[Rfam]
RNA: Bacterial small signal recognition particle RNA
RNA sequence: UGUCGGUCCUCCCGCAAUGAUACUUUAUGAACCCGGUCAGGCCCGGAAGGGAGCAGCCGCAGUAAAGGACUCAUGUGCCGGGAUGUGGCUGGUGGGA
Numbered sequence: 001u002g003u004c005g006g007u008c009c010u011c012c013c014g015c016a017a018u019g020a021u022a023c024u025u026u027a028u029g030a031a032c033c034c035g036g037u038c039a040g041g042c043c044c045g046g047a048a049g050g051g052a053g054c055a056g057c058c059g060c061a062g063u064a065a066a067g068g069a070c071u072c073a074u075g076u077g078c079c080g081g082g083a084u085g086u087g088g089c090u091g092g093u094g095g096g097a
Base pairs, nucleotide, nucleotide: 004091005090006089007088008087010083011082012081013080014079015075017074018073019072020071023067024066025065026064027063028062034059035058036057037056042051043050044049